[Rfam]
RNA sequence: GGAAGUAGCAACUAUUCAAAUGAGAACUUUGAAGACUGAAGUGGAGAAGGGUUUCUUGUCAACUGUGAUUGGACAAGAGUUAGCCGCUCCUAAGGGAUAGCUGAAAAGUGUUUAUUUGGGGAAUGUUUUGUAAGAAAUAUGCAUUUCAUCCCCGUCUCGAAAGGGAAACAGGUUGAUAUUCCUGUGCCGAUAGUAUUUUGAGUGUAAUAGAGAUGGUAACAUAUAUACAAAUGAACUCCUUCACAUAGGUCUUACACUCGGGGUGCGUUUUCUUUGCACUUUACCUCUAUAGCAAACCUUGGAAUCAAUUUACUUGGAGAAGAGGUUCGCUGAAUCAAUUCAGGCAAAUUAUUUUUUUGGGGUUUCGGCUCUGAAUUCUUAAUUUCCUGUUUUGUAGUAAUAGUAAUUCGUUUUUAUGAAUUAUCCGAAGCCGUAAGAACUAUCCUUGAAACAAGGAGGGAACAGCAAUUAAAGGGGGAUGAUUUAAUUUUUAAUUAUUUCAUUAACCUUUUUUUGUAUACUCUUAAUACUUGUAUGAGCGUACCAACAACCGCAUCAGGUCUCCAAGGUUAACAGCCUCUGGUUAAG
Numbered sequence: 001g002g003a004a005g006u007a008g009c010a011a012c013u014a015u016u017c018a019a020a021u022g023a024g025a026a027c028u029u030u031g032a033a034g035a036c037u038g039a040a041g042u043g044g045a046g047a048a049g050g051g052u053u054u055c056u057u058g059u060c061a062a063c064u065g066u067g068a069u070u071g072g073a074c075a076a077g078a079g080u081u082a083g084c085c086g087c088u089c090c091u092a093a094g095g096g097a098u099a100g101c102u103g104a105a106a107a108g109u110g111u112u113u114a115u116u117u118g119g120g121g122a123a124u125g126u127u128u129u130g131u132a133a134g135a136a137a138u139a140u141g142c143a144u145u146u147c148a149u150c151c152c153c154g155u156c157u158c159g160a161a162a163g164g165g166a167a168a169c170a171g172g173u174u175g176a177u178a179u180u181c182c183u184g185u186g187c188c189g190a191u192a193g194u195a196u197u198u199u200g201a202g203u204g205u206a207a208u209a210g211a212g213a214u215g216g217u218a219a220c221a222u223a224u225a226u227a228c229a230a231a232u233g234a235a236c237u238c239c240u241u242c243a244c245a246u247a248g249g250u251c252u253u254a255c256a257c258u259c260g261g262g263g264u265g266c267g268u269u270u271u272c273u274u275u276g277c278a279c280u281u282u283a284c285c286u287c288u289a290u291a292g293c294a295a296a297c298c299u300u301g302g303a304a305u306c307a308a309u310u311u312a313c314u315u316g317g318a319g320a321a322g323a324g325g326u327u328c329g330c331u332g333a334a335u336c337a338a339u340u341c342a343g344g345c346a347a348a349u350u351a352u353u354u355u356u357u358u359g360g361g362g363u364u365u366c367g368g369c370u371c372u373g374a375a376u377u378c379u380u381a382a383u384u385u386c387c388u389g390u391u392u393u394g395u396a397g398u399a400a401u402a403g404u405a406a407u408u409c410g411u412u413u414u415u416a417u418g419a420a421u422u423a424u425c426c427g428a429a430g431c432c433g434u435a436a437g438a439a440c441u442a443u444c445c446u447u448g449a450a451a452c453a454a455g456g457a458g459g460g461a462a463c464a465g466c467a468a469u470u471a472a473a474g475g476g477g478g479a480u481g482a483u484u485u486a487a488u489u490u491u492u493a494a495u496u497a498u499u500u501c502a503u504u505a506a507c508c509u510u511u512u513u514u515u516g517u518a519u520a521c522u523c524u525u526a527a528u529a530c531u532u533g534u535a536u537g538a539g540c541g542u543a544c545c546a547a548c549a550a551c552c553g554c555a556u557c558a559g560g561u562c563u564c565c566a567a568g569g570u571u572a573a574c575a576g577c578c579u580c581u582g583g584u585u586a587a588g
Stems, first nucleotide, its partner, number of pairs: 015033006034585004043565004049545002054078006063071001085541003089164002094158002096112003100109003119151003168185005188537002192531005203229004236458006245443004250438006258428003261281006285343002289339001296326005305317004350423002353420003551560002567579004
Rfam assigns this 588-nucleotide part of an RNA from Plasmodium vivax to the family "Eukaryotic large subunit ribosomal RNA". The source organism's lineage runs through Eukaryota, Sar, Apicomplexa, Aconoidasida and Plasmodium.